This 99-nucleotide RNA from a Phycisphaerae bacterium belongs to the Rfam family "TPP riboswitch aptamer (THI element)".
A search with the family's covariance model found it, with a score of 70 bits.
NCBI's taxonomy places the organism under Bacteria, Pseudomonadati, Planctomycetota, Phycisphaerae.
The family's consensus secondary structure is taken from published work.

[Rfam]
RNA sequence: UCUGUUCGCUCGGGGUGUCCGCCGUUGGUGUGGACUGAGAACAAACCCGAAGAACCUGAUCCGGCUGACACCGGCGUAGGGAAGCGAACGAAUCACGCA
Numbered sequence: 001u002c003u004g005u006u007c008g009c010u011c012g013g014g015g016u017g018u019c020c021g022c023c024g025u026u027g028g029u030g031u032g033g034a035c036u037g038a039g040a041a042c043a044a045a046c047c048c049g050a051a052g053a054a055c056c057u058g059a060u061c062c063g064g065c066u067g068a069c070a071c072c073g074g075c076g077u078a079g080g081g082a083a084g085c086g087a088a089c090g091a092a093u094c095a096c097g098c099a
Base pairs, nucleotide, nucleotide: 006087007086008085009084010083011049012048013047014046016043017035018034019033020032021031055080056079057078058077061074062073063072064071